[Rfam]
RNA sequence: GGGCUGGCUUUAGCUCAGCGGUUCCUUCGAUCAAUCAAGCUUAGUCACUUGGGCCGGUGGCUUCCAUCGGUCCGGUGGUUCGAGACCCGCGGGCGCUCUCCAGUCCUUUU
Dot-bracket structure: .((((((.....((((.((((....(((((.................................................)))))..)))))))).....)))))).....